The record is a 53-nucleotide RNA sequence from Ixodes scapularis, which matches "Guanidine-II riboswitch aptamer (mini-ykkC)" in Rfam. Simpler in structure and has fewer highly conserved nucleotide positions than the ykkC-yxkD leader. It scores 32 bits against the family's covariance model. The organism belongs to Ixodes, within Eukaryota. The family has 72 seed sequences and 1,589 matches in Rfam 15.1.

[Rfam]
RNA sequence: CCUAGAGGACGACCUCUAGGACGACCUUAAGGACGAUUUCUAGGACGACCUUG
Numbered sequence: 001c002c003u004a005g006a007g008g009a010c011g012a013c014c015u016c017u018a019g020g021a022c023g024a025c026c027u028u029a030a031g032g033a034c035g036a037u038u039u040c041u042a043g044g045a046c047g048a049c050c051u052u053g
Stems, first nucleotide, its partner, number of pairs: 001020008040053001042051003
Dot-bracket structure: ((((((((....))))))))...................(.(((....))).)